Shown here is a 74-nucleotide RNA from Acer yangbiense, a member of the family "Small nucleolar RNA R66". From the family's description: snoR66 is a C/D box small nucleolar RNA, which acts as a methylation guide for 18S ribosomal RNA in plants. snoR66 has been alternatively named snoZ269 in rice. The family's consensus secondary structure was predicted with PFOLD. For this family Rfam cites "The high diversity of snoRNAs in plants: identification and comparative study of 120 snoRNA genes from Oryza sativa" (Chen et al., Nucleic Acids Res, 2003).
[Rfam]
RNA sequence: ACCUGAUUGCAUGUAAUCUUUGAGACCUGAUUGUACAUAAUUUUAUGUCAACUAUAAGCAAUUUCGUUGAGGUC
Number, nucleotide and partner (000 for none) at each position: 001a073002c072003c071004u000005g000006a000007u000008u000009g000010c000011a000012u000013g000014u000015a000016a000017u000018c000019u000020u000021u000022g000023a000024g000025a000026c000027c000028u000029g000030a043031u040032u039033g000034u000035a000036c000037a000038u000039a032040a031041u000042u000043u030044u000045a000046u000047g000048u000049c000050a000051a000052c000053u000054a000055u000056a000057a000058g000059c000060a000061a000062u000063u000064u000065c000066g000067u000068u000069g000070a000071g003072g002073u001074c000